Rfam assigns this 77-nucleotide RNA sequence from Alligator mississippiensis to the family "Mammalian CPEB3 ribozyme". The family's consensus secondary structure is taken from published work. Taxonomically the source falls in Alligator (Eukaryota, Deuterostomia, Amniota, Alligatoridae).
[Rfam]
RNA sequence: GGUUGCAAGUUUGAGGCCAUAGCAGAAGCACUUGUGGCGCGGCCUGUCAGAUUCCAGUGAAAUCUGUGAAUUCUGCU
Numbered sequence: 001g002g003u004u005g006c007a008a009g010u011u012u013g014a015g016g017c018c019a020u021a022g023c024a025g026a027a028g029c030a031c032u033u034g035u036g037g038c039g040c041g042g043c044c045u046g047u048c049a050g051a052u053u054c055c056a057g058u059g060a061a062a063u064c065u066g067u068g069a070a071u072u073c074u075g076c077u
Stems, first nucleotide, its partner, number of pairs: 015044004021077007028040002048066006